[Rfam]
Rfam assigns this 61-nucleotide RNA sequence from Eucommia ulmoides to the family "Plastid-psbA-4 3UTR RNA". By type it is a cis-regulatory element. The family's consensus secondary structure was predicted with LocARNA. The family is grouped with related families in Rfam's "Plastid-psbA 3UTR RNA clan".
RNA sequence: GAAAAUAAAGGAGCAAUAACCUCUUUCUUGGUCUCUCAAGAGGUGGGUAUUGCUCCUUUUU
Numbered sequence: 001g002a003a004a005a006u007a008a009a010g011g012a013g014c015a016a017u018a019a020c021c022u023c024u025u026u027c028u029u030g031g032u033c034u035c036u037c038a039a040g041a042g043g044u045g046g047g048u049a050u051u052g053c054u055c056c057u058u059u060u061u
Stems, first nucleotide, its partner, number of pairs: 007059012022045001025042006
Rfam's curators write: Plastid psbA-4 is a non-coding RNA (ncRNA) present in plastids. It was identified in inverted repeat sequences in the 3 prime untranslate region (3UTR) of photosystem II quinone-binding protein (psbA).